tRNA: an 82-nucleotide RNA sequence from Prosthecobacter gellanilyticus. Rfam classes the family as a transfer RNA. The source organism's lineage runs through Bacteria, Pseudomonadati, Verrucomicrobiia, Verrucomicrobiales and Prosthecobacter. About the family: Transfer RNA (tRNA) molecules are approximately 80 nucleotides in length.
RNA sequence: GCGCUUGUGGCGGAAUUGGUAGACGCGCUAGAUUCAGGUUCUAGUGAGUAACAUCGUGGAGGUUCGAGUCCUCUCAAGCGCA
Numbered sequence: 001g002c003g004c005u006u007g008u009g010g011c012g013g014a015a016u017u018g019g020u021a022g023a024c025g026c027g028c029u030a031g032a033u034u035c036a037g038g039u040u041c042u043a044g045u046g047a048g049u050a051a052c053a054u055c056g057u058g059g060a061g062g063u064u065c066g067a068g069u070c071c072u073c074u075c076a077a078g079c080g081c082a
Stems, first nucleotide, its partner, number of pairs: 001081007010026003028044005058074005